[Rfam]
RNA: Actinobacteria sRNA Ms_IGR-5
Organism: Streptomyces sp. 8K308
RNA sequence: ACACGAGAAGGGAGGUGGUUCGGCAGAUGUAUGACAACCGGACGCGUGAGGUGGCUGCGGCCUAGCGGUCGCCGUCCCACGACGUGUGGUGCCGGCACCGCCCGGCAAUACCAAGCAGUCACCCGAUCCGCGGGCCGCCGGUAAGUCCGGCCGGCUCCCCGGCCGAGAGGCCGGGGACCAGGCCCGCGGAUCGUUCUUU
Numbered sequence: 001a002c003a004c005g006a007g008a009a010g011g012g013a014g015g016u017g018g019u020u021c022g023g024c025a026g027a028u029g030u031a032u033g034a035c036a037a038c039c040g041g042a043c044g045c046g047u048g049a050g051g052u053g054g055c056u057g058c059g060g061c062c063u064a065g066c067g068g069u070c071g072c073c074g075u076c077c078c079a080c081g082a083c084g085u086g087u088g089g090u091g092c093c094g095g096c097a098c099c100g101c102c103c104g105g106c107a108a109u110a111c112c113a114a115g116c117a118g119u120c121a122c123c124c125g126a127u128c129c130g131c132g133g134g135c136c137g138c139c140g141g142u143a144a145g146u147c148c149g150g151c152c153g154g155c156u157c158c159c160c161g162g163c164c165g166a167g168a169g170g171c172c173g174g175g176g177a178c179c180a181g182g183c184c185c186g187c188g189g190a191u192c193g194u195u196c197u198u199u
Stems, first nucleotide, its partner, number of pairs: 015058005060106003065101002068099001071096004124193013137155006